Overview
The family of this 72-nucleotide RNA sequence from Acidipila sp. EB88 is "tRNA". Pairs were carried over by alignment from the consensus structure, which is taken from published work. Lineage of the source: Bacteria > Acidobacteriota > Terriglobales > Acidobacteriaceae > Acidipila. A search with the family's covariance model found it, with a score of 66 bits.
[Rfam]
RNA sequence: GCUGGCGUAGCUCAGUUGGUAGAGCAUCUGAUUUGUAAUCAGACGGUCGGGGUUCAAGUCCCUUCGCCAGCU
Numbered sequence: 001g002c003u004g005g006c007g008u009a010g011c012u013c014a015g016u017u018g019g020u021a022g023a024g025c026a027u028c029u030g031a032u033u034u035g036u037a038a039u040c041a042g043a044c045g046g047u048c049g050g051g052g053u054u055c056a057a058g059u060c061c062c063u064u065c066g067c068c069a070g071c072u
Stems, first nucleotide, its partner, number of pairs: 001071007010025004027043005049063004